[Rfam]
RNA sequence: UCUUCUAUCACAACUCAAGAUCUGUGUUCAGCAUCGCUGACGGCCUCUGUCUUCGGGCAGUGGGUCUGAUCGGCUGAAGCUGAACAGUUCGACAACAAUGGAGCCAUCUAAUCCCAUGAUGUGAAUCUUCCAGUCGACAAAUCAAAGAGAAAACCGCCUCUCAAGACCUGAGCUCCCUCUGGGUGAGCUCGGUCGAAGGAUGUGCUGAGGGCUUCAUAUUCCACUUCUCUUUACUGACGGCCGUUGGCUGGUGAAGUCAGGGACAAACCAUGUCGCCUACAGAC
Numbered sequence: 001u002c003u004u005c006u007a008u009c010a011c012a013a014c015u016c017a018a019g020a021u022c023u024g025u026g027u028u029c030a031g032c033a034u035c036g037c038u039g040a041c042g043g044c045c046u047c048u049g050u051c052u053u054c055g056g057g058c059a060g061u062g063g064g065u066c067u068g069a070u071c072g073g074c075u076g077a078a079g080c081u082g083a084a085c086a087g088u089u090c091g092a093c094a095a096c097a098a099u100g101g102a103g104c105c106a107u108c109u110a111a112u113c114c115c116a117u118g119a120u121g122u123g124a125a126u127c128u129u130c131c132a133g134u135c136g137a138c139a140a141a142u143c144a145a146a147g148a149g150a151a152a153a154c155c156g157c158c159u160c161u162c163a164a165g166a167c168c169u170g171a172g173c174u175c176c177c178u179c180u181g182g183g184u185g186a187g188c189u190c191g192g193u194c195g196a197a198g199g200a201u202g203u204g205c206u207g208a209g210g211g212c213u214u215c216a217u218a219u220u221c222c223a224c225u226u227c228u229c230u231u232u233a234c235u236g237a238c239g240g241c242c243g244u245u246g247g248c249u250g251g252u253g254a255a256g257u258c259a260g261g262g263a264c265a266a267a268c269c270a271u272g273u274c275g276c277c278u279a280c281a282g283a284c
Stems, first nucleotide, its partner, number of pairs: 019143003023139003026085006034077002037073004042067002044064003048059004093136001095134002099124001101122001103120001105118001156205002165194004170190006176183002210277003215272003226263005233257003239249004
Rfam assigns this 284-nucleotide sequence from Cryomyces minteri to the family "A. fumigatus sRNA Afu_309". Rfam classes the family as a small RNA. For this family Rfam cites "Small ncRNA transcriptome analysis from Aspergillus fumigatus suggests a novel mechanism for regulation of protein synthesis" (Jochl et al., Nucleic Acids Res, 2008). The match comes from Rfam's covariance-model search (143 bits). The base pairs follow the family's consensus structure, which was predicted with WAR.